[Rfam]
The record is a 65-nucleotide RNA sequence from Medioppia subpectinata, which matches "Small nucleolar RNA R38" in Rfam.
RNA sequence: CGUAGAAGAUGAUGAAUUUGUUAUCCCUGGCUGAGGUAUGAUGAAGAAACUAUUCUGAUUCUACA
Dot-bracket structure: .((((((...................................................)))))).
The match comes from Rfam's covariance-model search (45 bits). On this family, see Qu et al., Nucleic Acids Res 2001: "Identification of 10 novel snoRNA gene clusters from Arabidopsis thaliana". snoR38 is a C/D box small nucleolar RNA conserved across yeast, human, Arabidopsis and rice. It is encoded in the intron of elongation factor-1 gamma in both pombe and cerevisiae. snoR38 guides the methylation of 2'-O-ribose sites in 28S rRNA. The base pairs follow the family's consensus structure, which was predicted with PFOLD. The family has 19 seed sequences and 2,295 matches in Rfam 15.1.